[Rfam]
RNA: Small nucleolar RNA SNORA5
Organism: Chunga burmeisteri
RNA sequence: CGCAGCCCUGUCAAAUUCGGUCCCUGCCUCCUCCUCCGUGAUGGGGACCGGCCAACCGGCUGCAACAGCAACUUCUGUGGUCUAUGGGCCCCACGUCCCCUUCCCCUGGGACACUGGGGAAUAAAAUCACGCCACGGACAUGU
Numbered sequence: 001c002g003c004a005g006c007c008c009u010g011u012c013a014a015a016u017u018c019g020g021u022c023c024c025u026g027c028c029u030c031c032u033c034c035u036c037c038g039u040g041a042u043g044g045g046g047a048c049c050g051g052c053c054a055a056c057c058g059g060c061u062g063c064a065a066c067a068g069c070a071a072c073u074u075c076u077g078u079g080g081u082c083u084a085u086g087g088g089c090c091c092c093a094c095g096u097c098c099c100c101u102u103c104c105c106c107u108g109g110g111a112c113a114c115u116g117g118g119g120a121a122u123a124a125a126a127u128c129a130c131g132c133c134a135c136g137g138a139c140a141u142g143u
Base pairs, nucleotide, nucleotide: 002063003062004061005060018050019049020048021047022046023045024044025043026042028040077135078134079133080132081131089119090118091117092116093115